The record is a 165-nucleotide sequence from Canis lupus, which matches "U1 spliceosomal RNA" in Rfam. The family's consensus secondary structure is taken from published work. By type it is a spliceosomal small nuclear RNA.

[Rfam]
RNA sequence: AUACUUACCUAGUAGGGGAGAUAACCAUGAUCACGAAGGUAAUCUCCCCAGGGUGAGGCUUAUCCAUUGCACUAUGGUUGUGCCAACCCCUGUGACUCCCUCAAAUGUGGGAAACUUGGCUGCAUAAUUUGUGGUAGUGGGGGAUUACGUUUAUGCUUCUCCCUU
Number, nucleotide and partner (000 for none) at each position: 001a000002u000003a000004c000005u000006u000007a000008c000009c000010u000011a000012g123013u122014a121015g120016g049017g048018g047019a000020g045021a000022u000023a000024a043025c000026c000027a040028u039029g000030a000031u000032c000033a000034c000035g000036a000037a000038g000039g028040u027041a000042a000043u024044c000045u020046c000047c018048c017049c016050a091051g090052g089053g088054u000055g087056a000057g084058g083059c082060u000061u080062a079063u000064c077065c076066a000067u000068u000069g000070c000071a000072c000073u000074a000075u000076g065077g064078u000079u062080g061081u000082g059083c058084c057085a000086a000087c055088c053089c052090c051091u050092g000093u118094g117095a116096c000097u112098c111099c000100c110101u109102c000103a000104a000105a000106u000107g000108u000109g101110g100111g098112a097113a000114a000115c000116u095117u094118g093119g000120c015121u014122g013123c012124a000125u000126a000127a000128u000129u000130u000131g000132u000133g000134g000135u000136a000137g000138u000139g164140g163141g162142g161143g160144a000145u000146u000147a000148c155149g154150u000151u000152u000153a000154u149155g148156c000157u000158u000159c000160u143161c142162c141163c140164u139165u000